[Rfam]
RNA sequence: CACCUGUAAACGCCGAAUUUCUUUCAAAGAAACCGGGGGAACCAUAUUCUUGGGGUUAAUCCCGCUCCCAGCAUCACACCUCUCGCCUUUGUCCGGAGCAGGGCGACGGCGGGAGCAAGGCCGGGGGCGGCGUAGGGCACUUCCGGCCCGCACCCGUCAGCUAACCCCGGAGGCGUUGGAAGGGAGGUGGA
Number, nucleotide and partner (000 for none) at each position: 001c000002a000003c000004c000005u000006g000007u000008a000009a000010a000011c175012g174013c173014c172015g000016a000017a000018u032019u031020u030021c029022u028023u027024u000025c000026a000027a023028a022029g021030a020031a019032a018033c170034c169035g168036g167037g166038g165039g000040a000041a000042c000043c052044a051045u000046a000047u000048u000049c000050u000051u044052g043053g155054g154055g153056u000057u000058a000059a000060u000061c132062c000063c000064g000065c000066u000067c000068c000069c000070a000071g000072c000073a000074u000075c000076a000077c000078a000079c000080c000081u000082c000083u000084c000085g000086c000087c000088u000089u000090u000091g000092u000093c000094c000095g000096g000097a000098g000099c000100a000101g000102g000103g000104c000105g000106a000107c000108g000109g000110c000111g000112g000113g000114a000115g000116c000117a000118a000119g000120g000121c000122c000123g000124g000125g000126g000127g000128c000129g000130g000131c000132g061133u000134a000135g149136g148137g147138c146139a000140c000141u000142u000143c000144c000145g000146g138147c137148c136149c135150g000151c000152a000153c055154c054155c053156g000157u000158c000159a000160g000161c000162u000163a000164a000165c038166c037167c036168c035169g034170g033171a000172g014173g013174c012175g011176u000177u000178g000179g000180a000181a000182g000183g000184g000185a000186g000187g000188u000189g000190g000191a000
The family of this 191-nucleotide RNA sequence from Neomoorella thermoacetica is "c-di-AMP riboswitch aptamer (ydaO/yuaA leader)".
The match comes from Rfam's covariance-model search (88 bits).
Rfam 15.1 lists 7,607 matches to the family in 2,262 species.